Nucleotides: 161
Stems, first nucleotide, its partner, number of pairs: 005157006017029003031141002033130002035069004064128002072106002110126005132144003
Number, partner (000 for none) and nucleotide at each position: 001000c002000u003000a004000c005157g006156u007155u008154c009153u010152c011000a012000g013000g014000g015000c016000g017029g018028g019027g020000u021000g022000a023000a024000a025000c026000u027019c028018c029017c030000c031141a032140c033130c034129g035069g036068c037067g038066g039000u040000g041000a042000u043000g044000g045000c046000g047000a048000c049000c050000u051000g052000a053000u054000g055000g056000u057000c058000g059000c060000a061000u062000g063000a064128g065127c066038c067037c068036g069035c070000g071000a072106g073105c074000g075000c076000c077000u078000c079000g080000u081000g082000g083000c084000c085000g086000g087000c088000a089000a090000c091000g092000g093000c094000g095000g096000c097000g098000a099000g100000g101000g102000u103000c104000a105073g106072c107000a108000g109000a110126c111125c112124c113123g114122g115000u116000u117000g118000g119000a120000a121000u122114c123113c124112g125111g126110g127065g128064c129034c130033g131000a132144c133143g134142g135000u136000c137000a138000c139000a140032g141031u142134c143133c144132g145000g146000a147000u148000g149000a150000a151000a152010g153009a154008g155007a156006g157005c158000a159000c160000g161000c